[Rfam]
RNA sequence: CCAUGAUCAGACAGCAUGCUUCGAUGCGACGGAACUUGUUUGAUCUCUAACUCAUCGACGGUUUUCAUUUCCCUUUAUCCGCCGGGGUGAU
Numbered sequence: 001c002c003a004u005g006a007u008c009a010g011a012c013a014g015c016a017u018g019c020u021u022c023g024a025u026g027c028g029a030c031g032g033a034a035c036u037u038g039u040u041u042g043a044u045c046u047c048u049a050a051c052u053c054a055u056c057g058a059c060g061g062u063u064u065u066c067a068u069u070u071c072c073c074u075u076u077a078u079c080c081g082c083c084g085g086g087g088u089g090a091u
Stems, first nucleotide, its partner, number of pairs: 005045007014027004